The family of this 174-nucleotide RNA from Turicibacter sp. HGF1 is "Lysine riboswitch aptamer".
NCBI's taxonomy places the organism under Bacteria, Bacillota, Erysipelotrichia, Erysipelotrichales, Turicibacter.
The family's consensus secondary structure is taken from published work.
The family has 47 seed sequences and 3,224 matches in Rfam 15.1.
RNA sequence: GUUUUAGAUAGAGGUGCGGUAACUAAGAGUACUAUUGAAGAGUGAAGACGUAGACGCAAUAGGAAAGGAGUUCUCGCCGAAGCCUAUCAUCGAUACUUUAAGGUGAUAGAGCUGGUGUUAUGUAAAAUAUACUUAACACUGUCACAAAAUAUUUUGUGGUGAGCUAUCAUUUAA
Numbered sequence: 001g002u003u004u005u006a007g008a009u010a011g012a013g014g015u016g017c018g019g020u021a022a023c024u025a026a027g028a029g030u031a032c033u034a035u036u037g038a039a040g041a042g043u044g045a046a047g048a049c050g051u052a053g054a055c056g057c058a059a060u061a062g063g064a065a066a067g068g069a070g071u072u073c074u075c076g077c078c079g080a081a082g083c084c085u086a087u088c089a090u091c092g093a094u095a096c097u098u099u100a101a102g103g104u105g106a107u108a109g110a111g112c113u114g115g116u117g118u119u120a121u122g123u124a125a126a127a128u129a130u131a132c133u134u135a136a137c138a139c140u141g142u143c144a145c146a147a148a149a150u151a152u153u154u155u156g157u158g159g160u161g162a163g164c165u166a167u168c169a170u171u172u173a174a
Stems, first nucleotide, its partner, number of pairs: 007168005016077004021072004032062006081113003085108007114140007122132003142159007